[Rfam]
RNA sequence: GUACUCCCUCCGUCCCAUAAUGUAAGACGCUUUUUGACUCUAGAGUCAAAAAGCGUCUUAUAUUAUGGAACGGAGGGAGUAU
Numbered sequence: 001g002u003a004c005u006c007c008c009u010c011c012g013u014c015c016c017a018u019a020a021u022g023u024a025a026g027a028c029g030c031u032u033u034u035u036g037a038c039u040c041u042a043g044a045g046u047c048a049a050a051a052a053g054c055g056u057c058u059u060a061u062a063u064u065a066u067g068g069a070a071c072g073g074a075g076g077g078a079g080u081a082u
Stems, first nucleotide, its partner, number of pairs: 003080003007076005013070001015068003019064021

Rfam assigns this 82-nucleotide RNA sequence from Triticum turgidum to the family "MIR1120/MIR1122 microRNA precursor family". A reference for the family is Yao et al. (2007), "Cloning and characterization of microRNAs from wheat (Triticum aestivum L.)", Genome Biol. Its family is annotated with miRNA-mediated post-transcriptional gene silencing and RISC complex in the Gene Ontology.